[Rfam]
This 45-nucleotide sequence from Gemmiger sp. An194 belongs to the Rfam family "ssNA-helicase RNA".
The organism belongs to Gemmiger, within Bacteria.
The family's consensus secondary structure is taken from published work.

Nucleotides: 045
Base pairs, nucleotide, nucleotide: 001028002027003026004025005024006023007022008021009020
Number, partner (000 for none) and nucleotide at each position: 001028u002027c003026g004025c005024c006023a007022a008021g009020g010000c011000u012000a013000g014000u015000a016000u017000u018000a019000c020009c021008c022007u023006u024005g025004g026003u027002g028001a029000c030000u031000u032000a033000u034000g035000u036000a037000g038000c039000a040000g041000u042000a043000g044000c045000a